[Rfam]
Archaeal large subunit ribosomal RNA: a 357-nucleotide part of an RNA from Halalkaliarchaeum desulfuricum. Clan: LSU clan. The family has 91 seed sequences and 2,955 matches in Rfam 15.1. The family's consensus secondary structure is taken from published work. The match comes from Rfam's covariance-model search (2717 bits).
RNA sequence: CACAGUAGCAGCGAAAGUCGGGUGAGAACCCCGACGGCCUGAAGAGCAAGGGUUCCUCGGCACUGUCAGUCAGCCGAGGGUUAGCCGAUCCUAAGUCUCCUCGUAAGACGCGGGAGACGAAGGGGAAACUGGUUAAUAUUCCAGUGCCGCUCCACAGAGAAAGCCGACGCCCGAGGAAACGUCGAGCUGGGCAAUCGCCCAGUCGAACCGGGGAAGGUCGUGGACGCCGUCAUGGCAAGAAGCGAUCGAAGCCCGGGAGAGGGAAACUCGACGGUACCUGGGGCCCGUGAAAAGGCGAGUGGAGUGAUCGUACCGAGAUCCGACACAGGUGCUCGGCCAGAGAAAGGCAAGGCCUGU
Numbered sequence: 001c002a003c004a005g006u007a008g009c010a011g012c013g014a015a016a017g018u019c020g021g022g023u024g025a026g027a028a029c030c031c032c033g034a035c036g037g038c039c040u041g042a043a044g045a046g047c048a049a050g051g052g053u054u055c056c057u058c059g060g061c062a063c064u065g066u067c068a069g070u071c072a073g074c075c076g077a078g079g080g081u082u083a084g085c086c087g088a089u090c091c092u093a094a095g096u097c098u099c100c101u102c103g104u105a106a107g108a109c110g111c112g113g114g115a116g117a118c119g120a121a122g123g124g125g126a127a128a129c130u131g132g133u134u135a136a137u138a139u140u141c142c143a144g145u146g147c148c149g150c151u152c153c154a155c156a157g158a159g160a161a162a163g164c165c166g167a168c169g170c171c172c173g174a175g176g177a178a179a180c181g182u183c184g185a186g187c188u189g190g191g192c193a194a195u196c197g198c199c200c201a202g203u204c205g206a207a208c209c210g211g212g213g214a215a216g217g218u219c220g221u222g223g224a225c226g227c228c229g230u231c232a233u234g235g236c237a238a239g240a241a242g243c244g245a246u247c248g249a250a251g252c253c254c255g256g257g258a259g260a261g262g263g264a265a266a267c268u269c270g271a272c273g274g275u276a277c278c279u280g281g282g283g284c285c286c287g288u289g290a291a292a293a294g295g296c297g298a299g300u301g302g303a304g305u306g307a308u309c310g311u312a313c314c315g316a317g318a319u320c321c322g323a324c325a326c327a328g329g330u331g332c333u334c335g336g337c338c339a340g341a342g343a344a345a346g347g348c349a350a351g352g353c354c355u356g357u
Stems, first nucleotide, its partner, number of pairs: 017035006036354004044334004050314002055079006064072002086310003090124002095118006102110002128145005148306008163296003169284004174279003180273005186203005208256004217246005226236003262267001320329002336348003